[Rfam]
Rfam assigns this 128-nucleotide sequence from Rattus norvegicus to the family "Small nucleolar RNA SNORA48". Rfam describes the family as follows. The snoRNA ACA 48 has been identified to guide pseudouridylation of the residue U3797 in the 28S rRNA subunit. The base pairs follow the family's consensus structure, which was predicted with RNAalifold. It is annotated as an H/ACA-box small nucleolar RNA.
RNA sequence: ACGCCCUGGCAAUGGGCAAAGAGACACCUGGUUUGUGGUGUGUUCUUGUAUCAGUCAGGGCAGGCCUUUGUUCAUCCUAGCUUGAUGCCUAGCUUGGUGACCAAAGCUCUCAUGCCUAGGGCACAUAA
Numbered sequence: 001a002c003g004c005c006c007u008g009g010c011a012a013u014g015g016g017c018a019a020a021g022a023g024a025c026a027c028c029u030g031g032u033u034u035g036u037g038g039u040g041u042g043u044u045c046u047u048g049u050a051u052c053a054g055u056c057a058g059g060g061c062a063g064g065c066c067u068u069u070g071u072u073c074a075u076c077c078u079a080g081c082u083u084g085a086u087g088c089c090u091a092g093c094u095u096g097g098u099g100a101c102c103a104a105a106g107c108u109c110u111c112a113u114g115c116c117u118a119g120g121g122c123a124c125a126u127a128a
Stems, first nucleotide, its partner, number of pairs: 003061006013053003019047003024041005069123005084116001086114001090112001092110001096109002